[Rfam]
RNA sequence: CGCUACGUCAAAGGGGAAGUGAUUUGUCGCAAAAAUUUGAUAAAAUCAUAUCACAGCCAGCUUUGAUGUGACGUA
Numbered sequence: 001c002g003c004u005a006c007g008u009c010a011a012a013g014g015g016g017a018a019g020u021g022a023u024u025u026g027u028c029g030c031a032a033a034a035a036u037u038u039g040a041u042a043a044a045a046u047c048a049u050a051u052c053a054c055a056g057c058c059a060g061c062u063u064u065g066a067u068g069u070g071a072c073g074u075a
Base pairs, nucleotide, nucleotide: 005069006068007067008066009065010064011063012062013061015058016057019054020053021052022051025050026049027048

The record is a 75-nucleotide RNA sequence from Panagrolaimus sp. JU765, which matches "mir-2 microRNA precursor family" in Rfam.
Taxonomically the source falls in Panagrolaimus (Eukaryota, Metazoa, Eumetazoa, Protostomia).
A search with the family's covariance model found it, with a score of 52 bits.
Pairs were carried over by alignment from the consensus structure, which was predicted with PFOLD.